[Rfam]
RNA sequence: AACGAAACUUUGCAUCAGUAGGCCUAGUAAACCAGAACAAGCAAAGUAUGGAUUGAUAGACGGCCCAAUUUCUGUAACUUUACCCAGAAAUAUGGGCGUCUUCCGUGCUGCUUGUUCGGGAACUUCGGUUCCUACCCAUACUAGGGGGUACUGAUGCGUGCGGGAGGCGACCAUAUUUUAUUGUUCCCUCCUGCUAUUAGGAUCAUUGCUUUA
Numbered sequence: 001a002a003c004g005a006a007a008c009u010u011u012g013c014a015u016c017a018g019u020a021g022g023c024c025u026a027g028u029a030a031a032c033c034a035g036a037a038c039a040a041g042c043a044a045a046g047u048a049u050g051g052a053u054u055g056a057u058a059g060a061c062g063g064c065c066c067a068a069u070u071u072c073u074g075u076a077a078c079u080u081u082a083c084c085c086a087g088a089a090a091u092a093u094g095g096g097c098g099u100c101u102u103c104c105g106u107g108c109u110g111c112u113u114g115u116u117c118g119g120g121a122a123c124u125u126c127g128g129u130u131c132c133u134a135c136c137c138a139u140a141c142u143a144g145g146g147g148g149u150a151c152u153g154a155u156g157c158g159u160g161c162g163g164g165a166g167g168c169g170a171c172c173a174u175a176u177u178u179u180a181u182u183g184u185u186c187c188c189u190c191c192u193g194c195u196a197u198u199a200g201g202a203u204c205a206u207u208g209c210u211u212u213a
Base pairs, nucleotide, nucleotide: 012157013156014155015154016153017152018151019150020149023145024144025143026142027141028140035117036116037115038114039113040112041111042110045109046108047107048106049105050104051103052102058101059100060099061098063097064096065095066094067093068091069090070089071088072087073086074085118133119132120131121130122129123128135148136147137146160194161193162192163191164190165189166188167187169185170184172183173182
The record is a 213-nucleotide RNA sequence from Pedobacter sp. BAL39, which matches "Pedo-repair RNA" in Rfam. Lineage of the source: Bacteria > Bacteroidota > Sphingobacteriia > Sphingobacteriaceae > Pedobacter. Pairs were carried over by alignment from the consensus structure, which is taken from published work.